[Rfam]
RNA sequence: UCAAAGCACUUUUGUAAGUCGCUCUGGAUAAGGGCGUCUGCCAAAAGCCAUAAA
Numbered sequence: 001u002c003a004a005a006g007c008a009c010u011u012u013u014g015u016a017a018g019u020c021g022c023u024c025u026g027g028a029u030a031a032g033g034g035c036g037u038c039u040g041c042c043a044a045a046a047g048c049c050a051u052a053a054a
Base pairs, nucleotide, nucleotide: 013043014041015040016039020036021035022034023033024032025031

Overview:
The record is a 54-nucleotide RNA sequence from Pangasianodon hypophthalmus, which matches "UnaL2 LINE 3' element" in Rfam. The eel long interspersed element (LINE) UnaL2 and its partner short interspersed element (SINE) share a conserved 3' tail containing a stem-loop that is critical for their retrotransposition. Presumably, the first step of retrotransposition is the recognition of their 3' tails by UnaL2-encoded reverse transcriptase. The solution structure of a 17-nucleotide RNA derived from the 3' tail of UnaL2 was determined by NMR. The literature on the family includes a 2004 paper in RNA by Baba et al., "Solution structure of an RNA stem-loop derived from the 3' conserved region of eel LINE UnaL2". The family's consensus secondary structure is taken from published work.